The record is a 119-nucleotide RNA from Cavia porcellus, which matches "Small nucleolar RNA SNORA26" in Rfam. Rfam's curators write: The snoRNA HBI-6 belong to the H/ACA family of snoRNAs, guiding the pseudouridylation of position U4522 if the 28S rRNA. HBI-6 is the human orthologue of mouse MBI-6 snoRNA. Clan: SNORA27 clan. Rfam 15.1 lists 1,943 matches to the family in 640 species. The organism belongs to Cavia, within Eukaryota. The family's RNA type in Rfam is H/ACA-box small nucleolar RNA. It is one of the family's seed sequences. Rfam links the family to the GO terms nucleolus and RNA processing.
RNA sequence: UUGCCCUUUUAAGGUUGACACAGUGCCUUCAAAGGGUAAUACAGAAGGGAAAAGAAAGACUCCUUAAAGCCCAGAUAAGAGAUUAAACUCUUCUUUGGGUCCUGUCUGGAGUCACAGGU
Numbered sequence: 001u002u003g004c005c006c007u008u009u010u011a012a013g014g015u016u017g018a019c020a021c022a023g024u025g026c027c028u029u030c031a032a033a034g035g036g037u038a039a040u041a042c043a044g045a046a047g048g049g050a051a052a053a054g055a056a057a058g059a060c061u062c063c064u065u066a067a068a069g070c071c072c073a074g075a076u077a078a079g080a081g082a083u084u085a086a087a088c089u090c091u092u093c094u095u096u097g098g099g100u101c102c103u104g105u106c107u108g109g110a111g112u113c114a115c116a117g118g119u
Stems, first nucleotide, its partner, number of pairs: 002051001004049007014040004019035001058113001060111004071098005077092001079090003083087001